The record is a 119-nucleotide RNA from Terrisporobacter othiniensis, which matches "PyrR binding site" in Rfam. The family's RNA type in Rfam is cis-regulatory element.

[Rfam]
RNA sequence: AAGUCUUUUAAAAUAGUCCAGAGAGGCUGAUAAAGAUAACACAUAACUAAUACUAAUUAUAUUGUUUAGAUUAUGCAUACACAAUCCUUAUACCUCUUUUGGUGUAAGGAUUUUUUUAA
Dot-bracket structure: ..((((((.....(((((......)))))..))))))....(((((.(.(.((.(......).)).).).))))).....(.((((((((((((......)))))))))))).).....